The family of this 75-nucleotide RNA from Streptomyces albus is "ASpks TB sRNA". Pairs were carried over by alignment from the consensus structure, which is taken from published work. It scores 87 bits against the family's covariance model. NCBI's taxonomy places the organism under Bacteria, Actinomycetota, Actinomycetes, Streptomycetaceae, Streptomyces.
RNA sequence: CUUCACCGAGCCCAACCACAGCGGACGGUCCCCCGGACGGUCCUGGCCGUACGUCGCCAGCAGCGCCUGCGCCUC
Numbered sequence: 001c002u003u004c005a006c007c008g009a010g011c012c013c014a015a016c017c018a019c020a021g022c023g024g025a026c027g028g029u030c031c032c033c034c035g036g037a038c039g040g041u042c043c044u045g046g047c048c049g050u051a052c053g054u055c056g057c058c059a060g061c062a063g064c065g066c067c068u069g070c071g072c073c074u075c
Stems, first nucleotide, its partner, number of pairs: 016024002031071001033069001038065002043060003047056001049054001